[Rfam]
RNA sequence: GCUGCUGCUCGCACCUGCUGCUGGUGCCCAGUGCUGGUCCUGAUCACUCAGCACUGUCAGUGGGUGCGAGCAGUGGCUG
Number, nucleotide and partner (000 for none) at each position: 001g000002c000003u000004g074005c073006u072007g071008c070009u069010c068011g067012c066013a065014c064015c063016u062017g061018c060019u059020g058021c000022u056023g055024g054025u053026g052027c051028c000029c000030a000031g000032u000033g000034c000035u000036g000037g000038u000039c000040c000041u000042g000043a000044u000045c000046a000047c000048u000049c000050a000051g027052c026053a025054c024055u023056g022057u000058c020059a019060g018061u017062g016063g015064g014065u013066g012067c011068g010069a009070g008071c007072a006073g005074u004075g000076g000077c000078u000079g000
A member of the RNA family "mir-9198 microRNA precursor family" from Myotis lucifugus, 79 nucleotides long. The base pairs follow the family's consensus structure, which was predicted with RNAalifold.